Overview
Enterococcus sRNA 68 (Lacto-3 RNA): a 126-nucleotide sequence from Furfurilactobacillus rossiae. The organism belongs to Furfurilactobacillus rossiae, within Bacteria. By type it is a small RNA.

RNA sequence: UGCGAUGAGUCGAGAUCAGCCAGACGGCAGUAAUGUCGUUCCUCUGCGGAGGCUAGUGGCUAUCGAAGCCGGGGGCACGUUUUUCCUUCGUAUAAGGAGUGCUUGAUCGUUCGUGUUGUGGAACAC
Numbered sequence: 001u002g003c004g005a006u007g008a009g010u011c012g013a014g015a016u017c018a019g020c021c022a023g024a025c026g027g028c029a030g031u032a033a034u035g036u037c038g039u040u041c042c043u044c045u046g047c048g049g050a051g052g053c054u055a056g057u058g059g060c061u062a063u064c065g066a067a068g069c070c071g072g073g074g075g076c077a078c079g080u081u082u083u084u085c086c087u088u089c090g091u092a093u094a095a096g097g098a099g100u101g102c103u104u105g106a107u108c109g110u111u112c113g114u115g116u117u118g119u120g121g122a123a124c125a126c
Stems, first nucleotide, its partner, number of pairs: 018061005023040006041052004074103005084098005113126005